[Rfam]
Notes:
Bacterial RNase P class A: a 371-nucleotide sequence from Pedobacter chitinilyticus. The family's RNA type in Rfam is ribozyme.
RNA sequence: AAUGCAAACCGUUCUAUCGCCGCAAUUUUAUAUUGAGGAGGAAAGUCCGGGCAACAAAGAGCGUCUCGCUUCCUAACGGGAAGGGGUUUAGGAAUGAAGACCUAGGCCACGGAAAGUGCCACAGAAAAUAUACCGUCUCAACUUGUUGGGAUAAGGGUGAAAACGUGAGGUAAGAGCUCACGAGCUUUGUUAGUGAUAGCAAGGUUGGUAAACCCCGGGAGUUGAAAGACCAAAUAGGCUAACGCAUGUAGGGCUGCUCGUCCGAUGUUAGUGGGUAGGUCGUUAGAGGUAAAUGGCAACAUUUAUCCUGGAUUAAUGAUAGAAGUCCUUUUAGGAGGAAACAGAACCCGGCUUAUAGGUUUGCAUUUAUA
Numbered sequence: 001a002a003u004g005c006a007a008a009c010c011g012u013u014c015u016a017u018c019g020c021c022g023c024a025a026u027u028u029u030a031u032a033u034u035g036a037g038g039a040g041g042a043a044a045g046u047c048c049g050g051g052c053a054a055c056a057a058a059g060a061g062c063g064u065c066u067c068g069c070u071u072c073c074u075a076a077c078g079g080g081a082a083g084g085g086g087u088u089u090a091g092g093a094a095u096g097a098a099g100a101c102c103u104a105g106g107c108c109a110c111g112g113a114a115a116g117u118g119c120c121a122c123a124g125a126a127a128a129u130a131u132a133c134c135g136u137c138u139c140a141a142c143u144u145g146u147u148g149g150g151a152u153a154a155g156g157g158u159g160a161a162a163a164c165g166u167g168a169g170g171u172a173a174g175a176g177c178u179c180a181c182g183a184g185c186u187u188u189g190u191u192a193g194u195g196a197u198a199g200c201a202a203g204g205u206u207g208g209u210a211a212a213c214c215c216c217g218g219g220a221g222u223u224g225a226a227a228g229a230c231c232a233a234a235u236a237g238g239c240u241a242a243c244g245c246a247u248g249u250a251g252g253g254c255u256g257c258u259c260g261u262c263c264g265a266u267g268u269u270a271g272u273g274g275g276u277a278g279g280u281c282g283u284u285a286g287a288g289g290u291a292a293a294u295g296g297c298a299a300c301a302u303u304u305a306u307c308c309u310g311g312a313u314u315a316a317u318g319a320u321a322g323a324a325g326u327c328c329u330u331u332u333a334g335g336a337g338g339a340a341a342c343a344g345a346a347c348c349c350g351g352c353u354u355a356u357a358g359g360u361u362u363g364c365a366u367u368u369a370u371a
Base pairs, nucleotide, nucleotide: 001367002366003365004364005363006362007361008360009359010358011356012324013323014322015321016320017319018318020038021037023035024034025033026032043354044353045352047351048350049349050348051347052224053223054222055221059259060258061257062256064220065219066218067217068216069083070082071081072080073079084110085108086107087106088105089104090103091102092101111215112214116213117212118209119208120207133156134155135152136151137150138149139148140147141146164182165181166180167179168178169177185204186203187202188201189200190199191198192197228281229280230279231278238272239271240270241269242268243267251263252262253261254260288307289306290305291304292303293302294301295300
It scores 271 bits against the family's covariance model. Rfam describes the family as follows. Ribonuclease P (RNase P) is a ubiquitous endoribonuclease, found in archaea, bacteria and eukarya as well as chloroplasts and mitochondria.